RNA sequence: AGAGGAGGCCUUUUCAGGCAUCCUCUCCCAAACUUCCAUGGCCCGCCAUCUGGCGGGCUAUUUUUUUGCCACAC
Numbered sequence: 001a002g003a004g005g006a007g008g009c010c011u012u013u014u015c016a017g018g019c020a021u022c023c024u025c026u027c028c029c030a031a032a033c034u035u036c037c038a039u040g041g042c043c044c045g046c047c048a049u050c051u052g053g054c055g056g057g058c059u060a061u062u063u064u065u066u067u068g069c070c071a072c073a074c
Stems, first nucleotide, its partner, number of pairs: 008019004040059008
RNA: Makes More Granules Regulator RNA (mmgR)
Organism: Novosphingobium umbonatum